[Rfam]
This 124-nucleotide RNA from Ornithorhynchus anatinus belongs to the Rfam family "mir-130 microRNA precursor family". The organism belongs to Ornithorhynchus, within Eukaryota. On this family, see Lagos-Quintana et al., Curr Biol 2002: "Identification of tissue-specific microRNAs from mouse". Gene Ontology terms of the family: RISC complex and miRNA-mediated post-transcriptional gene silencing.

RNA sequence: CCCCAGCCCGGGCUCUUUCCACUGAGCCCCGCUGCUUCUCUAAUGGAGGAAUAUAGAUAUAUACGCCUCAAAACAAAUUAACAGAGAAGCAGCGGGGCUCAGUGGAAAGAGCACGGGCUUUGGA
Numbered sequence: 001c002c003c004c005a006g007c008c009c010g011g012g013c014u015c016u017u018u019c020c021a022c023u024g025a026g027c028c029c030c031g032c033u034g035c036u037u038c039u040c041u042a043a044u045g046g047a048g049g050a051a052u053a054u055a056g057a058u059a060u061a062u063a064c065g066c067c068u069c070a071a072a073a074c075a076a077a078u079u080a081a082c083a084g085a086g087a088a089g090c091a092g093c094g095g096g097g098c099u100c101a102g103u104g105g106a107a108a109g110a111g112c113a114c115g116g117g118c119u120u121u122g123g124a
Stems, first nucleotide, its partner, number of pairs: 002123002005119006012112008022102020